[Rfam]
RNA: Glutamine-II riboswitch aptamer
RNA sequence: GUCCGUUCAUCCCGAAAGAAAAAGUAGGGACGCAUGACAACCUAGCAUGGAACGGGGCUAGG
Dot-bracket structure: ...[[[[[.((((.............))))..........((((((...]]]]]..))))))